Record summary:
The family of this 98-nucleotide sequence from Gracilibacillus ureilyticus is "Purine riboswitch aptamer". It scores 70 bits against the family's covariance model. Rfam links the family to the GO term purine nucleobase biosynthetic process.
[Rfam]
RNA sequence: AAAGUAUAAAUUAAUAUUACCUGUAUAACCUCAGAAUAUGGCUGAGGGUCUCUACCAGGAACCUUAAAAUCCUGAUUACAGAAAAAUGAACCGUUCAU
Numbered sequence: 001a002a003a004g005u006a007u008a009a010a011u012u013a014a015u016a017u018u019a020c021c022u023g024u025a026u027a028a029c030c031u032c033a034g035a036a037u038a039u040g041g042c043u044g045a046g047g048g049u050c051u052c053u054a055c056c057a058g059g060a061a062c063c064u065u066a067a068a069a070u071c072c073u074g075a076u077u078a079c080a081g082a083a084a085a086a087u088g089a090a091c092c093g094u095u096c097a098u
Base pairs, nucleotide, nucleotide: 018084021081022080023079024078025077029047030046031045032044033043034042056074057073058072059071060070